[Rfam]
RNA sequence: GGAAGCGGGUGCGAGGCGAGGGGUGCUAUCUGUGGUUGAGGACACGGCAAAUGAAACUGUCUCACACAGAAAUCGCACCCAUCUCCUCGGCCC
Numbered sequence: 001g002g003a004a005g006c007g008g009g010u011g012c013g014a015g016g017c018g019a020g021g022g023g024u025g026c027u028a029u030c031u032g033u034g035g036u037u038g039a040g041g042a043c044a045c046g047g048c049a050a051a052u053g054a055a056a057c058u059g060u061c062u063c064a065c066a067c068a069g070a071a072a073u074c075g076c077a078c079c080c081a082u083c084u085c086c087u088c089g090g091c092c093c
Base pairs, nucleotide, nucleotide: 012089013088014087015086016085018083019082021080022079023078024077025076026075029070030069031068032067033066034065037064038063039062040061041060
This 93-nucleotide RNA from Bos taurus belongs to the Rfam family "mir-342 microRNA precursor family". The base pairs follow the family's consensus structure, which was predicted with RNAalifold. NCBI's taxonomy places the organism under Eukaryota, Bilateria, Gnathostomata, Theria, Bos. The sequence is in the family's curated seed alignment.